[Rfam]
RNA: FMN riboswitch aptamer (RFN element)
Organism: Candidatus Syntrophocurvum alkaliphilum
RNA sequence: ACCUUUCUUCGGGGUUGGGUGUAAUUCCCUACCGGCGGUAAAGCCCGCGAGCCAAAAGGCAUGAUUCGGUGAAAUUCCGAAGCCGACAGUUAAAGUCUGGAUGGGAGAAGAAGGGC
Numbered sequence: 001a002c003c004u005u006u007c008u009u010c011g012g013g014g015u016u017g018g019g020u021g022u023a024a025u026u027c028c029c030u031a032c033c034g035g036c037g038g039u040a041a042a043g044c045c046c047g048c049g050a051g052c053c054a055a056a057a058g059g060c061a062u063g064a065u066u067c068g069g070u071g072a073a074a075u076u077c078c079g080a081a082g083c084c085g086a087c088a089g090u091u092a093a094a095g096u097c098u099g100g101a102u103g104g105g106a107g108a109a110g111a112a113g114g115g116c
Stems, first nucleotide, its partner, number of pairs: 003114008017029003031096002033085002035048004043083002053059001065081005087099003